[Rfam]
Nucleotides: 070
Stems, first nucleotide, its partner, number of pairs: 001070001003068003007064001009062005021039006044056003
Number, partner (000 for none) and nucleotide at each position: 001070g002000a003068c004067u005066g006000a007064g008000u009062u010061c011060g012059a013058c014000a015000c016000g017000a018000c019000a020000c021039g022038a023037u024036a025035u026034c027000c028000u029000g030000c031000a032000g033000a034026g035025a036024u037023a038022u039021u040000g041000u042000g043000c044056g045055a046054c047000c048000u049000g050000c051000a052000g053000u054046g055045u056044c057000a058013g059012u060011c061010g062009a063000a064007c065000c066005c067004a068003g069000c070001c
Background: This 70-nucleotide RNA from Clohesyomyces aquaticus belongs to the Rfam family "bZIP non canonical Hac1/Xbp1 intron". By type it is a small RNA. For this family Rfam cites "Conserved RNA structures in the non-canonical Hac1/Xbp1 intron" (Hooks and Griffiths-Jones, RNA Biol, 2011). bZIP intron RNA is a non-canonical intron that was first reported in HAC1 gene in yeast and XBP1 gene in Metazoa.